RNA sequence: AGAGGGCUUCCGCGACGGCAACGUUCGGGGGCCUUUUCUUUUGC
Numbered sequence: 001a002g003a004g005g006g007c008u009u010c011c012g013c014g015a016c017g018g019c020a021a022c023g024u025u026c027g028g029g030g031g032c033c034u035u036u037u038c039u040u041u042u043g044c
Stems, first nucleotide, its partner, number of pairs: 005033007014025004